[Rfam]
RNA sequence: GUGGGCUACGGGGACAUGUGCCCAGUCACCAUCGGUGGCAAAAUAGUGGGCUCUUUAUGUGCCAUCGCUGGUGUGCUCACCAUUGCGCUUCCAGUGCCCGUCAUCGUGUCCAAU
Numbered sequence: 001g002u003g004g005g006c007u008a009c010g011g012g013g014a015c016a017u018g019u020g021c022c023c024a025g026u027c028a029c030c031a032u033c034g035g036u037g038g039c040a041a042a043a044u045a046g047u048g049g050g051c052u053c054u055u056u057a058u059g060u061g062c063c064a065u066c067g068c069u070g071g072u073g074u075g076c077u078c079a080c081c082a083u084u085g086c087g088c089u090u091c092c093a094g095u096g097c098c099c100g101u102c103a104u105c106g107u108g109u110c111c112a113a114u
Base pairs, nucleotide, nucleotide: 001114002113004111005110007108008107009106010105011104013102014101015100018097019096020095021094037077038076039075040074049063050062051061
Rfam assigns this 114-nucleotide RNA sequence from Cyprinus carpio to the family "Potassium channel RNA editing signal". Lineage of the source: Eukaryota > Craniata > Teleostei > Otophysi > Cyprinus carpio. It is annotated as a cis-regulatory element. A search with the family's covariance model found it, with a score of 114 bits. Rfam links the family to the GO term adenosine to inosine editing.